Rfam assigns this 120-nucleotide RNA from Bacillus velezensis to the family "Bacillus sRNA ncr1015". The family's RNA type in Rfam is small RNA.
RNA sequence: AUAUAAGAUGGAUAACUAUGACUUUUCACACAAAAAGCGCGCGUGUUCUGAUUAUAUCACCGUGUCUGUUUUUGUGCAAUAUAAAAAGAACCUGGCCAAUUUGGCGAGGUUCUUUCUUCA
Numbered sequence: 001a002u003a004u005a006a007g008a009u010g011g012a013u014a015a016c017u018a019u020g021a022c023u024u025u026u027c028a029c030a031c032a033a034a035a036a037g038c039g040c041g042c043g044u045g046u047u048c049u050g051a052u053u054a055u056a057u058c059a060c061c062g063u064g065u066c067u068g069u070u071u072u073u074g075u076g077c078a079a080u081a082u083a084a085a086a087a088g089a090a091c092c093u094g095g096c097c098a099a100u101u102u103g104g105c106g107a108g109g110u111u112c113u114u115u116c117u118u119c120a
Base pairs, nucleotide, nucleotide: 033073034072035071036070037069038068039065040064041063042062043061085115086114087113088112089111090110091109092108093107095105